[Rfam]
RNA sequence: GCACUGAAAGUGAGAGUUGGAGGAAAUCAAACCGAUCGAUCCAUCCUGUAAUGGAUCGAUGAUAAAAACAUGAUCGCAAAUCGGUUUGUUUUCCUCCAAUAUCUCACCUUCAGUCG
Numbered sequence: 001g002c003a004c005u006g007a008a009a010g011u012g013a014g015a016g017u018u019g020g021a022g023g024a025a026a027u028c029a030a031a032c033c034g035a036u037c038g039a040u041c042c043a044u045c046c047u048g049u050a051a052u053g054g055a056u057c058g059a060u061g062a063u064a065a066a067a068a069c070a071u072g073a074u075c076g077c078a079a080a081u082c083g084g085u086u087u088g089u090u091u092u093c094c095u096c097c098a099a100u101a102u103c104u105c106a107c108c109u110u111c112a113g114u115c116g
Stems, first nucleotide, its partner, number of pairs: 004113005011106004016100006023093004028088003032084005
The family of this 116-nucleotide sequence from Panicum virgatum is "MIR2275 microRNA precursor family". NCBI's taxonomy places the organism under Eukaryota, Embryophyta, Euphyllophyta, Panicinae, Panicum sect. Hiantes. It scores 76 bits against the family's covariance model.